[Rfam]
RNA sequence: GGACAUCCAGAACCAACGUCCGGCAGAGACGGGGAAACCACUUCCGACCCGCCAUCUGGCCGGUCUUGGGGUGAAGCCGCACAGUGCCCGCAUGACGGGCCCAGACGCGGCCGGGUGCCUCCCAUCCGAAUCCGACAGCUCACCUCGCAGGCAUUGGGAGAGGUUAC
Numbered sequence: 001g002g003a004c005a006u007c008c009a010g011a012a013c014c015a016a017c018g019u020c021c022g023g024c025a026g027a028g029a030c031g032g033g034g035a036a037a038c039c040a041c042u043u044c045c046g047a048c049c050c051g052c053c054a055u056c057u058g059g060c061c062g063g064u065c066u067u068g069g070g071g072u073g074a075a076g077c078c079g080c081a082c083a084g085u086g087c088c089c090g091c092a093u094g095a096c097g098g099g100c101c102c103a104g105a106c107g108c109g110g111c112c113g114g115g116u117g118c119c120u121c122c123c124a125u126c127c128g129a130a131u132c133c134g135a136c137a138g139c140u141c142a143c144c145u146c147g148c149a150g151g152c153a154u155u156g157g158g159a160g161a162g163g164u165u166a167c
Stems, first nucleotide, its partner, number of pairs: 013151002019027002030147005039068002069133003077110004113127004
RNA: c-di-AMP riboswitch aptamer (ydaO/yuaA leader)